The family of this 64-nucleotide sequence from Desmophyllum pertusum is "mir-16 microRNA precursor family".
The family is grouped with related families in Rfam's "mir-15 clan".
NCBI's taxonomy places the organism under Eukaryota, Eumetazoa, Hexacorallia, Vacatina, Desmophyllum.
Rfam 15.1 lists 4,705 matches to the family in 758 species.
On this family, see Partin et al., Mol Cell 2020: "Cryo-EM Structures of Human Drosha and DGCR8 in Complex with Primary MicroRNA".
[Rfam]
RNA sequence: UAUUCGCCUCAGGCUCGUGAAUAUUGGUGAAUAUCACCAAUAUUCACUGCGCCUUUGGCGAAUA
Numbered sequence: 001u002a003u004u005c006g007c008c009u010c011a012g013g014c015u016c017g018u019g020a021a022u023a024u025u026g027g028u029g030a031a032u033a034u035c036a037c038c039a040a041u042a043u044u045c046a047c048u049g050c051g052c053c054u055u056u057g058g059c060g061a062a063u064a
Stems, first nucleotide, its partner, number of pairs: 001064003005060003010057001011054004016049001018046001020044010
Dot-bracket structure: (((.(((..(((((.(.(.((((((((((.....)))))))))).)..).))))..)))).)))